FMN riboswitch aptamer (RFN element): a 118-nucleotide sequence from Oribacterium sp. oral taxon 078. Rfam 15.1 lists 6,230 matches to the family in 5,120 species. A search with the family's covariance model found it, with a score of 106 bits. Lineage of the source: Bacteria > Bacillota > Lachnospirales > Lachnospiraceae > Oribacterium sp. oral taxon 078.
RNA sequence: AACUAUCUUCAGGGCGGGGUGCGAUUCCCCACUGGCGGUAAAGUCCGCGACCUGCGAGAGCAGCUGAACCGGUGCGACUCCGGUACCAACAGUAUAGUCUGGAUGGAAGAAGAGUUCA
Numbered sequence: 001a002a003c004u005a006u007c008u009u010c011a012g013g014g015c016g017g018g019g020u021g022c023g024a025u026u027c028c029c030c031a032c033u034g035g036c037g038g039u040a041a042a043g044u045c046c047g048c049g050a051c052c053u054g055c056g057a058g059a060g061c062a063g064c065u066g067a068a069c070c071g072g073u074g075c076g077a078c079u080c081c082g083g084u085a086c087c088a089a090c091a092g093u094a095u096a097g098u099c100u101g102g103a104u105g106g107a108a109g110a111a112g113a114g115u116u117c118a
Stems, first nucleotide, its partner, number of pairs: 006113005017029003031098002033088002035048004043086002052063002068084005090101003